RNA sequence: AAAACGGCCCUUUUCAGGGCCACCACUUUUAUCCAAUAAUGUCUAU
Numbered sequence: 001a002a003a004a005c006g007g008c009c010c011u012u013u014u015c016a017g018g019g020c021c022a023c024c025a026c027u028u029u030u031a032u033c034c035a036a037u038a039a040u041g042u043c044u045a046u
Base pairs, nucleotide, nucleotide: 006021007020008019009018010017011016
RNA: Histone 3' UTR stem-loop